Description
Rfam assigns this 86-nucleotide sequence from Dufourea novaeangliae to the family "mir-2944 microRNA precursor family". It scores 68 bits against the family's covariance model. The base pairs follow the family's consensus structure, which was predicted with RNAalifold. Rfam 15.1 lists 66 matches to the family in 42 species.
RNA sequence: GAUGGAAGAGUCCAGAGGAACUCUUGCUGUGAUGUGUCAUCGUCAUCAUUCAUAUCACAGCAGUAGUUACCUGGGAUUCUUUCAUC
Numbered sequence: 001g002a003u004g005g006a007a008g009a010g011u012c013c014a015g016a017g018g019a020a021c022u023c024u025u026g027c028u029g030u031g032a033u034g035u036g037u038c039a040u041c042g043u044c045a046u047c048a049u050u051c052a053u054a055u056c057a058c059a060g061c062a063g064u065a066g067u068u069a070c071c072u073g074g075g076a077u078u079c080u081u082u083c084a085u086c
Base pairs, nucleotide, nucleotide: 003084004083005082006081007080008079009078010077011076016072017071018070019068020067021066022065024063025062026061028059029058030057031056032055033054034053035052036051